[Rfam]
RNA sequence: ACCUAAUUUAAUAUUGGAUCCUAUAUAAGCUAGUAAUAUGGUCUAGUGUUUCUACAAUUAACCGUAAAUUAAUUACUAUGGUAAAAUUAUGUAAUUUU
Number, nucleotide and partner (000 for none) at each position: 001a000002c000003c000004u000005a000006a000007u000008u000009u000010a000011a000012u000013a000014u000015u000016g000017g000018a000019u083020c000021c081022u080023a079024u078025a077026u000027a000028a000029g047030c046031u045032a044033g043034u000035a000036a000037u000038a000039u000040g000041g000042u000043c033044u032045a031046g030047u029048g000049u000050u000051u000052c000053u000054a000055c000056a074057a073058u072059u071060a070061a069062c000063c000064g000065u000066a000067a000068a000069u061070u060071a059072a058073u057074u056075a000076c000077u025078a024079u023080g022081g021082u000083a019084a000085a000086a000087u000088u000089a000090u000091g000092u000093a000094a000095u000096u000097u000098u000
Purine riboswitch aptamer: a 98-nucleotide RNA from Spiroplasma eriocheiris.